Alphaproteobacterial sRNA BjrC1505: a 138-nucleotide RNA from bacterium YEK0313. The pairing is the family consensus, mapped onto this sequence. The match comes from Rfam's covariance-model search (103 bits). On this family, see Madhugiri et al., RNA Biol 2012: "Small RNAs of the Bradyrhizobium/Rhodopseudomonas lineage and their analysis". By type it is a small RNA.

RNA sequence: UGCAGGUUAACGGUAAGUUAACCUUUCCAGUUUAUCACUGGAAACGUUCAGUUCGCUGGACGCGAGUGGCUCCUGUCCACUCUGUUUGACGCCUCCCUGUUAAUUACUUUGAGGCCGCCUUCGGGCGGCCUUUUUUUG
Numbered sequence: 001u002g003c004a005g006g007u008u009a010a011c012g013g014u015a016a017g018u019u020a021a022c023c024u025u026u027c028c029a030g031u032u033u034a035u036c037a038c039u040g041g042a043a044a045c046g047u048u049c050a051g052u053u054c055g056c057u058g059g060a061c062g063c064g065a066g067u068g069g070c071u072c073c074u075g076u077c078c079a080c081u082c083u084g085u086u087u088g089a090c091g092c093c094u095c096c097c098u099g100u101u102a103a104u105u106a107c108u109u110u111g112a113g114g115c116c117g118c119c120u121u122c123g124g125g126c127g128g129c130c131u132u133u134u135u136u137u138g
Stems, first nucleotide, its partner, number of pairs: 001040002003013001015035001019034003023030002046061004064082006088101004111132009